[Rfam]
MIR2629 microRNA precursor family: a 72-nucleotide RNA sequence from Medicago truncatula.
The match comes from Rfam's covariance-model search (71 bits).
Taxonomically the source falls in Medicago (Eukaryota, Streptophytina, Embryophyta, Hologalegina).
Pairs were carried over by alignment from the consensus structure, which was predicted with RNAalifold.

RNA sequence: UACCGAGGUUUUCCUCGGCAGUUAACUGCAACCGGUUUCAAAUUCAUCGGCAGUUAACUGCCGAAGGAGCAA
Numbered sequence: 001u002a003c004c005g006a007g008g009u010u011u012u013c014c015u016c017g018g019c020a021g022u023u024a025a026c027u028g029c030a031a032c033c034g035g036u037u038u039c040a041a042a043u044u045c046a047u048c049g050g051c052a053g054u055u056a057a058c059u060g061c062c063g064a065a066g067g068a069g070c071a072a
Stems, first nucleotide, its partner, number of pairs: 012068002015065001016063014
Dot-bracket structure: ...........((.(((((((((((((((....................)))))))))))))).).))....